This 139-nucleotide RNA sequence from Digitaria exilis belongs to the Rfam family "Small nucleolar RNA Z247". The family's consensus secondary structure was predicted with PFOLD. NCBI's taxonomy places the organism under Eukaryota, Spermatophyta, Magnoliopsida, Paniceae, Digitaria. For this family Rfam cites "The high diversity of snoRNAs in plants: identification and comparative study of 120 snoRNA genes from Oryza sativa" (Chen et al., Nucleic Acids Res, 2003). Rfam links the family to the GO terms RNA processing and nucleolus.

RNA sequence: CCCCUCGACAAGGAUCUGUUUGGCUCCCAAAUCUUUGCUGGCGUCGACUCCGACUAUAAUCCAAUUGUGUCGGUUAUCCUCGCACGCGAGGAAGCCAUCACUCUUGAUGAGGUUUAUUCUCAACUCCUUAGCUUUGAGA
Numbered sequence: 001c002c003c004c005u006c007g008a009c010a011a012g013g014a015u016c017u018g019u020u021u022g023g024c025u026c027c028c029a030a031a032u033c034u035u036u037g038c039u040g041g042c043g044u045c046g047a048c049u050c051c052g053a054c055u056a057u058a059a060u061c062c063a064a065u066u067g068u069g070u071c072g073g074u075u076a077u078c079c080u081c082g083c084a085c086g087c088g089a090g091g092a093a094g095c096c097a098u099c100a101c102u103c104u105u106g107a108u109g110a111g112g113u114u115u116a117u118u119c120u121c122a123a124c125u126c127c128u129u130a131g132c133u134u135u136g137a138g139a
Base pairs, nucleotide, nucleotide: 004138005137006136007135008134088108091105092104